[Rfam]
The record is a 105-nucleotide RNA sequence from Polaromonas sp. CG9_12, which matches "SAM-I/IV (S-adenosyl methionine) riboswitch aptamer" in Rfam. The family is grouped with related families in Rfam's "SAM clan".

RNA sequence: AUUCAACAUUAAGAGUUGGGCCAACGCCCACGCCAACCUGCCUUCCGGGGCAAGGUGGUCGCCAAGCGCAAUGUGGUGCCCUCGGGUGCAACCAAGCCGGCAGCU
Numbered sequence: 001a002u003u004c005a006a007c008a009u010u011a012a013g014a015g016u017u018g019g020g021c022c023a024a025c026g027c028c029c030a031c032g033c034c035a036a037c038c039u040g041c042c043u044u045c046c047g048g049g050g051c052a053a054g055g056u057g058g059u060c061g062c063c064a065a066g067c068g069c070a071a072u073g074u075g076g077u078g079c080c081c082u083c084g085g086g087u088g089c090a091a092c093c094a095a096g097c098c099g100g101c102a103g104c105u
Stems, first nucleotide, its partner, number of pairs: 006074005015031001017030005032059003037055003040051003045100004076089004
The base pairs follow the family's consensus structure, which is taken from published work.